[Rfam]
RNA: Bacterial large signal recognition particle RNA
RNA sequence: CCGUGCUAGGUGGGGAGGUAGCGGUGCCCUGUAACUCGCAAUCCGCUCUAGCGAGACUGAAGUCCUUUUCUGAGGCUGUUCGUAUGUUUGGUCUGCCUCUUGCACGUAGUGUUGACGGUUGGGUCCCGCGCAAUGGGAAGCCAUGAACCAUGUCAGGUCCGGAAGGAAGCAGCAUUAAGUGGUCCCACCCAUGUGCCGUGGGGUAGCCUAACCUGAGCUGGCGACAAGAGUAACGCUUAUGUACGGCAGUCGAAGGAAGGUGCACGG
Numbered sequence: 001c002c003g004u005g006c007u008a009g010g011u012g013g014g015g016a017g018g019u020a021g022c023g024g025u026g027c028c029c030u031g032u033a034a035c036u037c038g039c040a041a042u043c044c045g046c047u048c049u050a051g052c053g054a055g056a057c058u059g060a061a062g063u064c065c066u067u068u069u070c071u072g073a074g075g076c077u078g079u080u081c082g083u084a085u086g087u088u089u090g091g092u093c094u095g096c097c098u099c100u101u102g103c104a105c106g107u108a109g110u111g112u113u114g115a116c117g118g119u120u121g122g123g124u125c126c127c128g129c130g131c132a133a134u135g136g137g138a139a140g141c142c143a144u145g146a147a148c149c150a151u152g153u154c155a156g157g158u159c160c161g162g163a164a165g166g167a168a169g170c171a172g173c174a175u176u177a178a179g180u181g182g183u184c185c186c187a188c189c190c191a192u193g194u195g196c197c198g199u200g201g202g203g204u205a206g207c208c209u210a211a212c213c214u215g216a217g218c219u220g221g222c223g224a225c226a227a228g229a230g231u232a233a234c235g236c237u238u239a240u241g242u243a244c245g246g247c248a249g250u251c252g253a254a255g256g257a258a259g260g261u262g263c264a265c266g267g
Stems, first nucleotide, its partner, number of pairs: 001267006009058003012030004017025001019023001035055005064260003068257004074251005081245007090236001094232002098229005106222002108219003117213008125202006131193002134191004140183005150175004158167003